The family of this 103-nucleotide sequence from Paralysiella testudinis is "SAM-I/IV (S-adenosyl methionine) riboswitch aptamer". A search with the family's covariance model found it, with a score of 48 bits. The base pairs follow the family's consensus structure, which is taken from published work. Lineage of the source: Bacteria > Pseudomonadati > Neisseriales > Neisseriaceae > Paralysiella.

[Rfam]
RNA sequence: GGCCAACAUCCAGAGUUGGAAUAUCCAUGCCAACCUGCCGGUCGGCAAGGUGGAAUGCGCAGUGCAGAUGUGGCCGUGUUGAGCGGCAAAAACGGCAUGCACC
Number, nucleotide and partner (000 for none) at each position: 001g000002g000003c000004c000005a000006a071007c070008a069009u068010c067011c000012a000013g000014a000015g028016u000017u027018g026019g025020a024021a000022u000023a000024u020025c019026c018027a017028u015029g000030c053031c052032a000033a000034c050035c049036u048037g046038c045039c044040g000041g000042u000043c000044g039045g038046c037047a000048a036049g035050g034051u000052g031053g030054a000055a000056u000057g000058c000059g000060c000061a000062g000063u000064g000065c000066a000067g010068a009069u008070g007071u006072g000073g087074c086075c085076g084077u000078g000079u000080u000081g000082a000083g000084c076085g075086g074087c073088a000089a000090a000091a000092a000093c000094g000095g000096c000097a000098u000099g000100c000101a000102c000103c000